[Rfam]
RNA: FMN riboswitch aptamer (RFN element)
Organism: Oribacterium sp. KHPX15
RNA sequence: UAUGAUCUUCGGGGAAGGUGAAAUUCCUUAUCGGCGGUAAAGCCCGCGAGCCUUAUGGCAGGAUCCGGUUAGAUUCCGGGGCCGACAGUAUAGUCUGGAUGGAAGAAGAUAGAG
Number, nucleotide and partner (000 for none) at each position: 001u000002a000003u112004g000005a110006u109007c108008u107009u106010c105011g000012g000013g000014g000015a000016a028017g027018g026019u000020g000021a000022a000023a000024u000025u000026c018027c017028u016029u000030a094031u093032c084033g083034g047035c046036g045037g044038u000039a000040a000041a000042g082043c081044c037045c036046g035047c034048g000049a000050g000051c000052c058053u000054u000055a000056u000057g000058g052059c000060a000061g000062g000063a000064u080065c079066c078067g077068g076069u000070u000071a000072g000073a000074u000075u000076c068077c067078g066079g065080g064081g043082c042083c033084g032085a000086c097087a096088g095089u000090a000091u000092a000093g031094u030095c088096u087097g086098g000099a000100u000101g000102g000103a000104a000105g010106a009107a008108g007109a006110u005111a000112g003113a000114g000